Shown here is a 90-nucleotide RNA sequence from Clarias magur, a member of the family "mir-146 microRNA precursor family". Gene Ontology terms of the family: RISC complex and miRNA-mediated post-transcriptional gene silencing. Taxonomically the source falls in Clarias (Eukaryota, Deuterostomia, Vertebrata, Clupeocephala). A reference for the family is Cai et al. (2005), "Kaposi's sarcoma-associated herpesvirus expresses an array of viral microRNAs in latently infected cells", Proc Natl Acad Sci U S A. Rfam 15.1 lists 1,617 matches to the family in 642 species. The match comes from Rfam's covariance-model search (60 bits).
RNA sequence: CCGAGCACUCGGCCCUGAGAACUGAAUUCCAUAGAUGGUGGACAUGUGGCGCUCAUCUAUGGAUUCAGUUCUUUUGGCAAUGUGCUUUUU
Numbered sequence: 001c002c003g004a005g006c007a008c009u010c011g012g013c014c015c016u017g018a019g020a021a022c023u024g025a026a027u028u029c030c031a032u033a034g035a036u037g038g039u040g041g042a043c044a045u046g047u048g049g050c051g052c053u054c055a056u057c058u059a060u061g062g063a064u065u066c067a068g069u070u071c072u073u074u075u076g077g078c079a080a081u082g083u084g085c086u087u088u089u090u
Stems, first nucleotide, its partner, number of pairs: 009080001011078001013076001018072008033058004